The record is a 76-nucleotide RNA from Bombyx mori, which matches "mir-2774 microRNA precursor family" in Rfam.
[Rfam]
RNA sequence: ACAACAUUUGGACCUUUUUUUUUGUCUGUCUACCGAGCAAUGUCAACUGCUCGGUGGAAGAUCUUUCUUUCGUCGU
Numbered sequence: 001a002c003a004a005c006a007u008u009u010g011g012a013c014c015u016u017u018u019u020u021u022u023u024g025u026c027u028g029u030c031u032a033c034c035g036a037g038c039a040a041u042g043u044c045a046a047c048u049g050c051u052c053g054g055u056g057g058a059a060g061a062u063c064u065u066u067c068u069u070u071c072g073u074c075g076u
Base pairs, nucleotide, nucleotide: 004073005072010067011066012065024062025061026060029058030057031056032055033054034053035052036051037050038049
Gene Ontology terms of the family: RISC complex and miRNA-mediated post-transcriptional gene silencing. The organism belongs to Bombyx, within Eukaryota. The family's consensus secondary structure was predicted with RNAalifold.